The family of this 113-nucleotide sequence from Paraglaciecola hydrolytica is "Gammaprotebacteria rimP leader". Gene Ontology term of the family: regulation of gene expression. It is annotated as a cis-regulatory leader.
Nucleotides: 113
Stems, first nucleotide, its partner, number of pairs: 034057001036055006095106004
Number, partner (000 for none) and nucleotide at each position: 001000u002000a003000g004000u005000g006000a007000a008000a009000u010000u011000a012000g013000u014000g015000g016000a017000c018000u019000a020000g021000g022000g023000u024000c025000c026000a027000g028000a029000a030000u031000c032000a033000a034057a035000c036055a037054g038053c039052c040051c041050c042000g043000c044000u045000u046000g047000a048000a049000a050041g051040g052039g053038g054037c055036u056000u057034u058000u059000u060000g061000u062000u063000a064000u065000c066000c067000g068000u069000u070000u071000u072000g073000u074000c075000g076000u077000a078000u079000u080000u081000u082000a083000u084000a085000a086000a087000c088000a089000u090000a091000c092000u093000c094000u095106g096105g097104g098103c099000a100000u101000u102000a103098g104097c105096c106095c107000u108000u109000u110000u111000u112000u113000u
For this family Rfam cites "Premature terminator analysis sheds light on a hidden world of bacterial transcriptional attenuation" (Naville and Gautheret, Genome Biol, 2010).
The family's consensus secondary structure is taken from published work.
Lineage of the source: Bacteria > Pseudomonadota > Gammaproteobacteria > Alteromonadales > Paraglaciecola.